[Rfam]
RNA sequence: CUGUAUUCUACAGUGCAUGUGUCUCCAGUGUUAGUGAUGCUACUGGAGACCAAGCUCUGUUGGAAUAAC
Numbered sequence: 001c002u003g004u005a006u007u008c009u010a011c012a013g014u015g016c017a018u019g020u021g022u023c024u025c026c027a028g029u030g031u032u033a034g035u036g037a038u039g040c041u042a043c044u045g046g047a048g049a050c051c052a053a054g055c056u057c058u059g060u061u062g063g064a065a066u067a068a069c
Base pairs, nucleotide, nucleotide: 006065007064008063009062010060011059012058013057015055016054018053021050022049023048024047025046026045027044028043029042
mir-139 microRNA precursor family: a 69-nucleotide RNA sequence from Notothenia coriiceps. Rfam 15.1 lists 598 matches to the family in 559 species. The family's consensus secondary structure was predicted with RNAalifold.